[Rfam]
RNA sequence: UGACGGGGGCCCGCACAAGCGGUGGAACACGUGGUUUAAUUCGAUGCUACGCGAGGAACCUUACCAGGGUUUGACAUGCUGGAAGUAAUCGCCUGAAAGGGUGGGUGACCUGUAUCCAAUCAGGUACCAGCACAGGUGCUGCAUGGCUGUCGUCAGCUCGUGCCGUGAGGUGUUCCCUUAAGUGGGAGAACGAGCGCAACCCCCGCCUUUAGUUGCUACUUUUUAGAUUUAUCUAGAAAGGCACUCUAAAGGGACUGCCCGCGUUAAGUGGGAGGAAGGUGAGGACGACGUCAAGUCCGCAUGGCCCUUAUGUCCUGGGCUACACACGUGUUACAAUGCCUGUUACAACGGGAGGCUAAACCGCAAGGUGGAGCAAAUCCCUAAAAAGCAGGCCCAGUUCAGAUUGCAGGCUGCAAUUCGCCUGCAUGAAGCCGGAAUCGCUAGUAAUGGCGCAUCAGCACGGCGCCGUGAAUACGUUCCCGGGCCUUGUACACACCGCCCGUCAAGCGCUGAAAGUGGGGGGCACCUGAAGUCCCCGUAAGAGGAUCACGGUGAAUUUCAUGAUUGGCGCUAAGUCGUAACAAGG
Numbered sequence: 001u002g003a004c005g006g007g008g009g010c011c012c013g014c015a016c017a018a019g020c021g022g023u024g025g026a027a028c029a030c031g032u033g034g035u036u037u038a039a040u041u042c043g044a045u046g047c048u049a050c051g052c053g054a055g056g057a058a059c060c061u062u063a064c065c066a067g068g069g070u071u072u073g074a075c076a077u078g079c080u081g082g083a084a085g086u087a088a089u090c091g092c093c094u095g096a097a098a099g100g101g102u103g104g105g106u107g108a109c110c111u112g113u114a115u116c117c118a119a120u121c122a123g124g125u126a127c128c129a130g131c132a133c134a135g136g137u138g139c140u141g142c143a144u145g146g147c148u149g150u151c152g153u154c155a156g157c158u159c160g161u162g163c164c165g166u167g168a169g170g171u172g173u174u175c176c177c178u179u180a181a182g183u184g185g186g187a188g189a190a191c192g193a194g195c196g197c198a199a200c201c202c203c204c205g206c207c208u209u210u211a212g213u214u215g216c217u218a219c220u221u222u223u224u225a226g227a228u229u230u231a232u233c234u235a236g237a238a239a240g241g242c243a244c245u246c247u248a249a250a251g252g253g254a255c256u257g258c259c260c261g262c263g264u265u266a267a268g269u270g271g272g273a274g275g276a277a278g279g280u281g282a283g284g285a286c287g288a289c290g291u292c293a294a295g296u297c298c299g300c301a302u303g304g305c306c307c308u309u310a311u312g313u314c315c316u317g318g319g320c321u322a323c324a325c326a327c328g329u330g331u332u333a334c335a336a337u338g339c340c341u342g343u344u345a346c347a348a349c350g351g352g353a354g355g356c357u358a359a360a361c362c363g364c365a366a367g368g369u370g371g372a373g374c375a376a377a378u379c380c381c382u383a384a385a386a387a388g389c390a391g392g393c394c395c396a397g398u399u400c401a402g403a404u405u406g407c408a409g410g411c412u413g414c415a416a417u418u419c420g421c422c423u424g425c426a427u428g429a430a431g432c433c434g435g436a437a438u439c440g441c442u443a444g445u446a447a448u449g450g451c452g453c454a455u456c457a458g459c460a461c462g463g464c465g466c467c468g469u470g471a472a473u474a475c476g477u478u479c480c481c482g483g484g485c486c487u488u489g490u491a492c493a494c495a496c497c498g499c500c501c502g503u504c505a506a507g508c509g510c511u512g513a514a515a516g517u518g519g520g521g522g523g524c525a526c527c528u529g530a531a532g533u534c535c536c537c538g539u540a541a542g543a544g545g546a547u548c549a550c551g552g553u554g555a556a557u558u559u560c561a562u563g564a565u566u567g568g569c570g571c572u573a574a575g576u577c578g579u580a581a582c583a584a585g586g
Stems, first nucleotide, its partner, number of pairs: 001493002003490003007487007015477002019441005024334001026332008034323002040055004064318007077132002080129003084125001089104006109124004135307002138305004144301002146296003149292001151290002156195006162171003174187004201284002204281001206252007216241002220239007255275002258272005338393007350381003355374002360369003400431001405426007447469007496585001498582001501578002506572008516562006524554004532547004537542001

The family of this 586-nucleotide part of an RNA from an uncultured bacterium is "Bacterial small subunit ribosomal RNA". It is one of the family's seed sequences.